RNA: SAM-I/IV (S-adenosyl methionine) riboswitch aptamer
Organism: Tsuneonella litorea
RNA sequence: CUCCAUCAUCAAGAGCAGGCUUACGCCUCGCCAACCUGUCCGCCCGGAUAAGGUGGUUUCCGUUCUCACGGGAUGUGGCCGACACGGCAACGCGCGGGCUUCGG
Numbered sequence: 001c002u003c004c005a006u007c008a009u010c011a012a013g014a015g016c017a018g019g020c021u022u023a024c025g026c027c028u029c030g031c032c033a034a035c036c037u038g039u040c041c042g043c044c045c046g047g048a049u050a051a052g053g054u055g056g057u058u059u060c061c062g063u064u065c066u067c068a069c070g071g072g073a074u075g076u077g078g079c080c081g082a083c084a085c086g087g088c089a090a091c092g093c094g095c096g097g098g099c100u101u102c103g104g
Base pairs, nucleotide, nucleotide: 007075008074009073010072015029017028018027019026020025030057031056032055035053036052037051038049039048040047042100044098045097078088079087080086081085